A member of the RNA family "c-di-AMP riboswitch aptamer (ydaO/yuaA leader)", 139 nucleotides long.
It is one of the family's seed sequences.
Pairs were carried over by alignment from the consensus structure.
RNA sequence: AUUUAAUAAUGGCCAAAUCUCAAACAUUGAGAACGGAGGACCCAAUAUAUUGGGGUUAAUUCUGAAAUACAGAAAGGAUGAGAAACUCUUUCGCCAUCCUACCCGUCAGCUAACUUCGUCGGCUAAAGCGAAGGAGGUC
Numbered sequence: 001a002u003u004u005a006a007u008a009a010u011g012g013c014c015a016a017a018u019c020u021c022a023a024a025c026a027u028u029g030a031g032a033a034c035g036g037a038g039g040a041c042c043c044a045a046u047a048u049a050u051u052g053g054g055g056u057u058a059a060u061u062c063u064g065a066a067a068u069a070c071a072g073a074a075a076g077g078a079u080g081a082g083a084a085a086c087u088c089u090u091u092c093g094c095c096a097u098c099c100u101a102c103c104c105g106u107c108a109g110c111u112a113a114c115u116u117c118g119u120c121g122g123c124u125a126a127a128g129c130g131a132a133g134g135a136g137g138u139c
Stems, first nucleotide, its partner, number of pairs: 011124004018032003033119006043052002053104003061073004076099004